Annotation: This 500-nucleotide part of an RNA from uncultured marine crenarchaeote SAT1000-49-D2 belongs to the Rfam family "Archaeal small subunit ribosomal RNA". Taxonomically the source falls in Nitrosopumilales (Archaea, Thermoproteati, Nitrososphaerota, Nitrososphaeria). Rfam links the family to the GO terms ribosome and structural constituent of ribosome. On this family, see Yusupov et al., Science 2001: "Crystal structure of the ribosome at 5.5 A resolution".
RNA sequence: AAUCCGGUUGAUCCUGCCGGACCUGACUGCUAUCGGAUUGAUACUAAGCCAUGCGAGUCUUUGUAGUAAUACAAGGCAGACGGCUCAGUAACACGUAGUCAACCUACCCUAUGGACAAGAAUAAUCUCGGGAAACUGGGCAUAAUUCUUGAUAGAUCAUAAUGCCUGGAAUGGUUUAUGGUUAAAAUGAUUCGUCGCCAUAGGAUGGGACUGCGGCCUAUCAGCUUGUUGGUGAGGUAAUGGCCCACCAAGGCGAUUACAGGUACGGGCUCUGAGAGGAGAAGCCCGGAGAUGGGUACUGAGACACGGACCCAGGCCCUAUGGGGCGCAGCAGGCGAGAAAACUUUGCAAUGUGCGAAAGCACGACAAGGUUAAUCCGAGUGAUUUCUGCUAAAGAAAUCUUUUGCCAGUCAUAAAACCACUGGUGAAUAAGGGGUGGGCAAGUUCUGGUGUCAGCCGCCGCGGUAAAACCAGCACCUCAAGUGGUCAGGAUGAUUAUUG
Numbered sequence: 001a002a003u004c005c006g007g008u009u010g011a012u013c014c015u016g017c018c019g020g021a022c023c024u025g026a027c028u029g030c031u032a033u034c035g036g037a038u039u040g041a042u043a044c045u046a047a048g049c050c051a052u053g054c055g056a057g058u059c060u061u062u063g064u065a066g067u068a069a070u071a072c073a074a075g076g077c078a079g080a081c082g083g084c085u086c087a088g089u090a091a092c093a094c095g096u097a098g099u100c101a102a103c104c105u106a107c108c109c110u111a112u113g114g115a116c117a118a119g120a121a122u123a124a125u126c127u128c129g130g131g132a133a134a135c136u137g138g139g140c141a142u143a144a145u146u147c148u149u150g151a152u153a154g155a156u157c158a159u160a161a162u163g164c165c166u167g168g169a170a171u172g173g174u175u176u177a178u179g180g181u182u183a184a185a186a187u188g189a190u191u192c193g194u195c196g197c198c199a200u201a202g203g204a205u206g207g208g209a210c211u212g213c214g215g216c217c218u219a220u221c222a223g224c225u226u227g228u229u230g231g232u233g234a235g236g237u238a239a240u241g242g243c244c245c246a247c248c249a250a251g252g253c254g255a256u257u258a259c260a261g262g263u264a265c266g267g268g269c270u271c272u273g274a275g276a277g278g279a280g281a282a283g284c285c286c287g288g289a290g291a292u293g294g295g296u297a298c299u300g301a302g303a304c305a306c307g308g309a310c311c312c313a314g315g316c317c318c319u320a321u322g323g324g325g326c327g328c329a330g331c332a333g334g335c336g337a338g339a340a341a342a343c344u345u346u347g348c349a350a351u352g353u354g355c356g357a358a359a360g361c362a363c364g365a366c367a368a369g370g371u372u373a374a375u376c377c378g379a380g381u382g383a384u385u386u387c388u389g390c391u392a393a394a395g396a397a398a399u400c401u402u403u404u405g406c407c408a409g410u411c412a413u414a415a416a417a418c419c420a421c422u423g424g425u426g427a428a429u430a431a432g433g434g435g436u437g438g439g440c441a442a443g444u445u446c447u448g449g450u451g452u453c454a455g456c457c458g459c460c461g462c463g464g465u466a467a468a469a470c471c472a473g474c475a476c477c478u479c480a481a482g483u484g485g486u487c488a489g490g491a492u493g494a495u496u497a498u499u500g
Stems, first nucleotide, its partner, number of pairs: 004020005022490010033379009042337001048335003052332003057077003061074001063072003084290003094214007103207002108203007116150004126139005155181007164173002188195002216262003223253003228250006235243001265287004269280004292313005315326004343369001345368003351364005382400007405425006432479006446473004455462002